RNA sequence: AUUAACACAAUGAUAAAGGAAGUAACCUUUUUCCCCGCUUAUUUCAGAGAGGGCAUGUCAGCGGCUGAAAGCAUGCCUGUAAGUCAUAAAAGGCGAAGUUCCCUUUGGAGUGGCGCGGCUGAACCUUUUCAGUAGGCUGCGACGGCAGGCACCGUUAAAGGCUGACGAGUAAUUAAUUAGGGUGGUACCACGGAGCUUUCGUCUUCGUCCCUUGC
Numbered sequence: 001a002u003u004a005a006c007a008c009a010a011u012g013a014u015a016a017a018g019g020a021a022g023u024a025a026c027c028u029u030u031u032u033c034c035c036c037g038c039u040u041a042u043u044u045c046a047g048a049g050a051g052g053g054c055a056u057g058u059c060a061g062c063g064g065c066u067g068a069a070a071g072c073a074u075g076c077c078u079g080u081a082a083g084u085c086a087u088a089a090a091a092g093g094c095g096a097a098g099u100u101c102c103c104u105u106u107g108g109a110g111u112g113g114c115g116c117g118g119c120u121g122a123a124c125c126u127u128u129u130c131a132g133u134a135g136g137c138u139g140c141g142a143c144g145g146c147a148g149g150c151a152c153c154g155u156u157a158a159a160g161g162c163u164g165a166c167g168a169g170u171a172a173u174u175a176a177u178u179a180g181g182g183u184g185g186u187a188c189c190a191c192g193g194a195g196c197u198u199u200c201g202u203c204u205u206c207g208u209c210c211c212u213u214g215c
Stems, first nucleotide, its partner, number of pairs: 007111002015106004026093005040081003051078008114141007143154003179212004190208005

Rfam assigns this 215-nucleotide RNA from Clostridium sp. KNHs216 to the family "T-box leader". Rfam describes the family as follows. Uncharged tRNA acts as the effector for transcription antitermination of genes in the T-box leader family. T-boxes are found upstream of many aminoacyl-tRNA synthetase genes and some amino acid biosynthetic genes usually in Gram-positive bacteria. The anticodon of a specific tRNA base pairs to a specifier sequence within the T-box motif, and the NCCA acceptor tail of the tRNA base pairs to a conserved bulge in the T-box antiterminator hairpin. Rfam links the family to the GO term tRNA binding. The family's RNA type in Rfam is cis-regulatory leader. Rfam 15.1 lists 19,395 matches to the family in 1,923 species. The literature on the family includes a 1994 paper in J Bacteriol by Grundy et al., "Interaction between the acceptor end of tRNA and the T box stimulates antitermination in the Bacillus subtilis tyrS gene: a new role for the discriminator base".